Rfam assigns this 296-nucleotide RNA from Saprolegnia parasitica to the family "5' ureB small RNA". Pairs were carried over by alignment from the consensus structure, which was predicted with mfold.
RNA sequence: CCGUGGUAUUCUACCUGUGGACAGAUAAAGUGGACGUGCGUAUCGACGCCGCCGGCUGUCAGAAUGAGAUCGCGGCCAGCAAUCGCUUCCGUGUUGACGCCGAUGACCAUGUUGGGGUCGACACCGUCCAUUACGUCGGGGUUGCCCGCCUUGCCGAUCGCCCAGAUGCGGCCGUGCUUGAUGCCAACAUCCGCCUUGUAGAUGCCCGAGUAGUCGACAAUGACGACGUUCGUGAUGACCGUGUCCAGGACGUCAUUGGCGCAGCGGCCAGUGGCCUGGCCCAUGCCCUCGCGCAG
Numbered sequence: 001c002c003g004u005g006g007u008a009u010u011c012u013a014c015c016u017g018u019g020g021a022c023a024g025a026u027a028a029a030g031u032g033g034a035c036g037u038g039c040g041u042a043u044c045g046a047c048g049c050c051g052c053c054g055g056c057u058g059u060c061a062g063a064a065u066g067a068g069a070u071c072g073c074g075g076c077c078a079g080c081a082a083u084c085g086c087u088u089c090c091g092u093g094u095u096g097a098c099g100c101c102g103a104u105g106a107c108c109a110u111g112u113u114g115g116g117g118u119c120g121a122c123a124c125c126g127u128c129c130a131u132u133a134c135g136u137c138g139g140g141g142u143u144g145c146c147c148g149c150c151u152u153g154c155c156g157a158u159c160g161c162c163c164a165g166a167u168g169c170g171g172c173c174g175u176g177c178u179u180g181a182u183g184c185c186a187a188c189a190u191c192c193g194c195c196u197u198g199u200a201g202a203u204g205c206c207c208g209a210g211u212a213g214u215c216g217a218c219a220a221u222g223a224c225g226a227c228g229u230u231c232g233u234g235a236u237g238a239c240c241g242u243g244u245c246c247a248g249g250a251c252g253u254c255a256u257u258g259g260c261g262c263a264g265c266g267g268c269c270a271g272u273g274g275c276c277u278g279g280c281c282c283a284u285g286c287c288c289u290c291g292c293g294c295a296g
Stems, first nucleotide, its partner, number of pairs: 001296001003294001006292002008289001010166003017161002019077002022074001031054003035051002038049004058070003079154001082151001085149002091145003095141001096137003105132002111127002114124001171280004178274003182270002184267002192228002195225001197223001207216002230264001232262001237257002241253003